Shown here is a 59-nucleotide sequence from Synechococcus sp. KORDI-100, a member of the family "Glutamine-II riboswitch aptamer". The family's consensus secondary structure is taken from published work. It scores 42 bits against the family's covariance model.
[Rfam]
RNA sequence: CAACGUUGAGCUCGGGUUCCGAGCUGCAGUCAGAAAUCAGUCAGGCAACGGGGACUGAU
Numbered sequence: 001c002a003a004c005g006u007u008g009a010g011c012u013c014g015g016g017u018u019c020c021g022a023g024c025u026g027c028a029g030u031c032a033g034a035a036a037u038c039a040g041u042c043a044g045g046c047a048a049c050g051g052g053g054a055c056u057g058a059u
Base pairs, nucleotide, nucleotide: 004050005049006048007047008046010024011023012022013021014020036059037058038057039056040055041053042052